[Rfam]
Notes: The family of this 169-nucleotide RNA from Insectozyma verbasci is "Small nucleolar RNA snR80".
Nucleotides: 169
Base pairs, nucleotide, nucleotide: 007089008088009087020076021075023073024072026070027069028068029067030055031054032053033052034051035050036049104164105163106162107161117149118148119146120145122143123142124141125140126139127138
Number, partner (000 for none) and nucleotide at each position: 001000a002000u003000u004000u005000g006000g007089u008088u009087a010000c011000u012000a013000a014000c015000a016000c017000u018000c019000u020076g021075g022000u023073g024072c025000u026070a027069a028068a029067u030055u031054c032053a033052u034051u035050g036049a037000u038000u039000u040000g041000a042000a043000a044000u045000a046000u047000a048000a049036u050035u051034a052033a053032u054031g055030a056000u057000a058000u059000u060000u061000u062000a063000c064000u065000g066000u067029a068028u069027u070026u071000a072024g073023u074000u075021c076020c077000u078000a079000u080000u081000u082000u083000a084000g085000c086000g087009u088008a089007a090000c091000c092000u093000a094000a095000a096000u097000u098000a099000a100000u101000a102000u103000u104164a105163g106162u107161u108000g109000a110000c111000u112000a113000c114000u115000c116000a117149c118148c119146a120145u121000u122143a123142u124141a125140u126139u127138c128000a129000a130000a131000u132000u133000u134000u135000g136000a137000u138127g139126a140125a141124u142123a143122u144000a145120a146119u147000a148118g149117g150000u151000c152000c153000a154000u155000u156000u157000c158000a159000g160000u161107a162106a163105c164104u165000u166000a167000c168000a169000u

The family's consensus secondary structure was predicted with WAR. A search with the family's covariance model found it, with a score of 66 bits. Taxonomically the source falls in Insectozyma (Eukaryota, Fungi, Ascomycota, saccharomyceta). Gene Ontology terms of the family: nucleolus and RNA processing. Clan: SNORA28 clan. By type it is an H/ACA-box small nucleolar RNA.